Overview: The family of this 194-nucleotide RNA sequence is "psaA RNA". Rfam classes the family as a cis-regulatory element. The base pairs follow the family's consensus structure, which is taken from published work. It is one of the family's seed sequences.
[Rfam]
RNA sequence: CCUAUGCUUCCGCAAGAGGUCCCCUUGUCGGGGCCCAAGCACCAGUUCGUACAAGAGGUUUCGGCCUCCGAUCGAGCUGGCGCCCGGCGGUUCCGUCUCUAUGAGGCGAGCUGUCAGGGCCCCGACAGGCUCAGGCCUAUCGGAAGGGGUGUCCCAUCACCUCGAUCCCGUCCCCUCGAGGAACGACUCGAUGA
Dot-bracket structure: .................((.((((((...(((((((..((.(((((((...(..(((((....))))).)...))))))).))..((.(((((.(((((...)))))))))).)).)))))))((.(((......))).))..))))))...)).....((((((..........)))))).............